[Rfam]
RNA sequence: AAUUUAAGAGGGCAAACUUAUCGAAAGAUAAGGACGCAAAGCCAAGGGCCUAAAUUGAAAAAAAUAUGGCAGCCGGUUGCAUAG
Numbered sequence: 001a002a003u004u005u006a007a008g009a010g011g012g013c014a015a016a017c018u019u020a021u022c023g024a025a026a027g028a029u030a031a032g033g034a035c036g037c038a039a040a041g042c043c044a045a046g047g048g049c050c051u052a053a054a055u056u057g058a059a060a061a062a063a064a065u066a067u068g069g070c071a072g073c074c075g076g077u078u079g080c081a082u083a084g
Stems, first nucleotide, its partner, number of pairs: 012037002017032006040078004046074002048070003055064002
RNA: c-di-GMP-I riboswitch aptamer